[Rfam]
RNA: TPP riboswitch aptamer (THI element)
RNA sequence: UAAACACGUUAGGGGAGCUGGUGAAGUCCGGCUGAGAAUAAAACCGAUUCGUUUUAGACCCAUAUACCUGAUCCGGGUAAUGCCGGCGUAGGAAUCAUAGAGGAAGAUAUUAU
Numbered sequence: 001u002a003a004a005c006a007c008g009u010u011a012g013g014g015g016a017g018c019u020g021g022u023g024a025a026g027u028c029c030g031g032c033u034g035a036g037a038a039u040a041a042a043a044c045c046g047a048u049u050c051g052u053u054u055u056a057g058a059c060c061c062a063u064a065u066a067c068c069u070g071a072u073c074c075g076g077g078u079a080a081u082g083c084c085g086g087c088g089u090a091g092g093a094a095u096c097a098u099a100g101a102g103g104a105a106g107a108u109a110u111u112a113u
Stems, first nucleotide, its partner, number of pairs: 007100001010097001012061003017032005039056005067092004073086004